[Rfam]
RNA sequence: UACUUAUCAAGAAAGGCAGAGGGAAUUGGCCCGAUGAAGCCUUGGCAACCCUUACAGGUCACUCACUUGUAAGAAGGUGCCAACUCCAGUCCGCAAUUGCGGGCAGAGAUAAGUC
Numbered sequence: 001u002a003c004u005u006a007u008c009a010a011g012a013a014a015g016g017c018a019g020a021g022g023g024a025a026u027u028g029g030c031c032c033g034a035u036g037a038a039g040c041c042u043u044g045g046c047a048a049c050c051c052u053u054a055c056a057g058g059u060c061a062c063u064c065a066c067u068u069g070u071a072a073g074a075a076g077g078u079g080c081c082a083a084c085u086c087c088a089g090u091c092c093g094c095a096a097u098u099g100c101g102g103g104c105a106g107a108g109a110u111a112a113g114u115c
Stems, first nucleotide, its partner, number of pairs: 002114007013043005021032003026089004044081004049077002051073008085107001090103005
The record is a 115-nucleotide RNA sequence from Panacibacter ginsenosidivorans, which matches "SAM riboswitch aptamer (S box leader)" in Rfam. The organism belongs to Panacibacter, within Bacteria.